[Rfam]
L17 ribosomal protein downstream element: an 85-nucleotide RNA from Carnobacterium iners. The family's consensus secondary structure is taken from published work.
RNA sequence: AGAGUGUUACGAUGAUGGAAAGCCAUUUAGGUUUCUCCAAGUCUAGCUCGAAACUUCUCUUAGAUGAAAAUGGGUUUCAUCUAAG
Numbered sequence: 001a002g003a004g005u006g007u008u009a010c011g012a013u014g015a016u017g018g019a020a021a022g023c024c025a026u027u028u029a030g031g032u033u034u035c036u037c038c039a040a041g042u043c044u045a046g047c048u049c050g051a052a053a054c055u056u057c058u059c060u061u062a063g064a065u066g067a068a069a070a071u072g073g074g075u076u077u078c079a080u081c082u083a084a085g
Stems, first nucleotide, its partner, number of pairs: 002049004011043003017038003021034002059085009